[Rfam]
Overview: Rfam assigns this 70-nucleotide RNA sequence from Pseudolycoriella hygida to the family "mir-252 microRNA precursor family". Gene Ontology terms of the family: miRNA-mediated post-transcriptional gene silencing and RISC complex. The family has 44 seed sequences and 422 matches in Rfam 15.1. For this family Rfam cites "Direct sequencing and expression analysis of a large number of miRNAs in Aedes aegypti and a multi-species survey of novel mosquito miRNAs" (Li et al., BMC Genomics, 2009). The family is grouped with related families in Rfam's "mir-252 microRNA precursor family".

RNA sequence: UUUCUUUUCUAAGUACUAGUGCCGCAGGAGGUGAUUGUAGCUCCUGCCGCCCAAGUGCUUUUCAAAGAGU
Numbered sequence: 001u002u003u004c005u006u007u008u009c010u011a012a013g014u015a016c017u018a019g020u021g022c023c024g025c026a027g028g029a030g031g032u033g034a035u036u037g038u039a040g041c042u043c044c045u046g047c048c049g050c051c052c053a054a055g056u057g058c059u060u061u062u063c064a065a066a067g068a069g070u
Base pairs, nucleotide, nucleotide: 002069003068004067005066006065007064011060012059013058014057015056016055017054019052024047025046026045027044028043029042030041